Shown here is an 88-nucleotide RNA sequence from Digitaria exilis, a member of the family "Small nucleolar RNA SNORD25". Taxonomically the source falls in Digitaria (Eukaryota, Spermatophyta, Mesangiospermae, Poales). The family's consensus secondary structure was predicted with PFOLD. A reference for the family is Tycowski et al. (1996), "A mammalian gene with introns instead of exons generating stable RNA products", Nature. The family is grouped with related families in Rfam's "SNORD25 clan".
[Rfam]
RNA sequence: AACAACAGUCAUUGGUCCUUGCAGACGUGUAAUGAUUAUUGUGGAUAUGAUUGGUUGAACGUAUCGACAUCAAAGGGACUAAGUUGCG
Numbered sequence: 001a002a003c004a005a006c007a008g009u010c011a012u013u014g015g016u017c018c019u020u021g022c023a024g025a026c027g028u029g030u031a032a033u034g035a036u037u038a039u040u041g042u043g044g045a046u047a048u049g050a051u052u053g054g055u056u057g058a059a060c061g062u063a064u065c066g067a068c069a070u071c072a073a074a075g076g077g078a079c080u081a082a083g084u085u086g087c088g
Stems, first nucleotide, its partner, number of pairs: 003086004